[Rfam]
The record is a 75-nucleotide sequence from Leptotrombidium deliense, which matches "mir-10 microRNA precursor family" in Rfam. Gene Ontology terms of the family: RISC complex and miRNA-mediated post-transcriptional gene silencing.
RNA sequence: CUACAUCUACCCUGUAGAUCCGAAUUUGUCUAUUGUGUUCAAGGCAACAAAUUCGGUUCUAGAGAGGUUUGUGUG
Numbered sequence: 001c002u003a004c005a006u007c008u009a010c011c012c013u014g015u016a017g018a019u020c021c022g023a024a025u026u027u028g029u030c031u032a033u034u035g036u037g038u039u040c041a042a043g044g045c046a047a048c049a050a051a052u053u054c055g056g057u058u059c060u061a062g063a064g065a066g067g068u069u070u071g072u073g074u075g
Stems, first nucleotide, its partner, number of pairs: 002073004011064001016060003020056010